[Rfam]
RNA sequence: UGGGCAGUAUCAAUGUGAACUGCACCGCUGUUUAGGAAAAUCAAAAUAAAAAUGUGGAUUCUGCCUUGAUCCAAAAUAGGACUGGGACAGAGGG
Numbered sequence: 001u002g003g004g005c006a007g008u009a010u011c012a013a014u015g016u017g018a019a020c021u022g023c024a025c026c027g028c029u030g031u032u033u034a035g036g037a038a039a040a041u042c043a044a045a046a047u048a049a050a051a052a053u054g055u056g057g058a059u060u061c062u063g064c065c066u067u068g069a070u071c072c073a074a075a076a077u078a079g080g081a082c083u084g085g086g087a088c089a090g091a092g093g094g
Stems, first nucleotide, its partner, number of pairs: 001027003004023005010018002061090003064086003068082001070081003
The family of this 94-nucleotide RNA sequence is "pan motif". A search with the family's covariance model found it, with a score of 70 bits. Pairs were carried over by alignment from the consensus structure, which is taken from published work.